[Rfam]
RNA sequence: UAGUUUUCUCCUAAGUCAAACUUCUCUAACUUUGACCAAGUUUAUAGAAAAAUGCACUAACAUUCAUAAUACCAAAUAAACACUAUCAAGGCAUAUUUUGUGGUGGAUGUACUGAAACUAAUAUGGUGUUGUAGAUGUUAGUGCGUUUUUCUAUAAACUUGGUCAAAGUUAGAGAAGUUUGACUUAGGACAAAACUAA
Number, nucleotide and partner (000 for none) at each position: 001u000002a000003g000004u000005u193006u192007u191008c000009u189010c000011c187012u186013a185014a184015g183016u182017c181018a180019a179020a178021c177022u176023u175024c174025u173026c172027u000028a000029a000030c000031u167032u166033u165034g164035a163036c000037c000038a000039a000040g000041u000042u000043u000044a000045u153046a152047g151048a150049a149050a148051a147052a146053u000054g000055c143056a142057c141058u000059a139060a138061c137062a136063u135064u134065c000066a132067u131068a130069a000070u000071a000072c126073c125074a124075a000076a122077u121078a000079a000080a000081c000082a000083c000084u000085a000086u000087c000088a000089a000090g000091g000092c000093a000094u000095a000096u000097u000098u000099u000100g000101u000102g000103g000104u000105g000106g000107a000108u000109g000110u000111a000112c000113u000114g000115a000116a000117a000118c000119u000120a000121a077122u076123a000124u074125g073126g072127u000128g000129u000130u068131g067132u066133a000134g064135a063136u062137g061138u060139u059140a000141g057142u056143g055144c000145g000146u052147u051148u050149u049150u048151c047152u046153a045154u000155a000156a000157a000158c000159u000160u000161g000162g000163u035164c034165a033166a032167a031168g000169u000170u000171a000172g026173a025174g024175a023176a022177g021178u020179u019180u018181g017182a016183c015184u014185u013186a012187g011188g000189a009190c000191a007192a006193a005194a000195c000196u000197a000198a000
RNA: MIR1435 microRNA precursor family
Organism: Oryza punctata